[Rfam]
RNA sequence: UUGGGUUCACAAUAUAGUUAGGCAAAAAAUGGUGCUGAUUAAUAAAUGGGCAUUGUUUUAAAAAGUGGAUCCGAAAGUGAAUUGUUCCCCUCGCUAUCCAGUGUAGAAAUUUCUUUGCUACAUUUGGACGUUGGGAAACUAUAUUU
Numbered sequence: 001u002u003g004g005g006u007u008c009a010c011a012a013u014a015u016a017g018u019u020a021g022g023c024a025a026a027a028a029a030u031g032g033u034g035c036u037g038a039u040u041a042a043u044a045a046a047u048g049g050g051c052a053u054u055g056u057u058u059u060a061a062a063a064a065g066u067g068g069a070u071c072c073g074a075a076a077g078u079g080a081a082u083u084g085u086u087c088c089c090c091u092c093g094c095u096a097u098c099c100a101g102u103g104u105a106g107a108a109a110u111u112u113c114u115u116u117g118c119u120a121c122a123u124u125u126g127g128a129c130g131u132u133g134g135g136a137a138a139c140u141a142u143a144u145u146u
Stems, first nucleotide, its partner, number of pairs: 001075002003072003008067003013062001017059001020056001028054004033049001084139003088135003092130002097128005106118001108116001

Small nucleolar RNA snoR136: a 146-nucleotide RNA from Beta vulgaris. NCBI's taxonomy places the organism under Eukaryota, Streptophytina, Spermatophyta, Amaranthaceae, Beta vulgaris. The family's consensus secondary structure was predicted with mfold. It scores 74 bits against the family's covariance model. Rfam links the family to the GO terms nucleolus and RNA processing.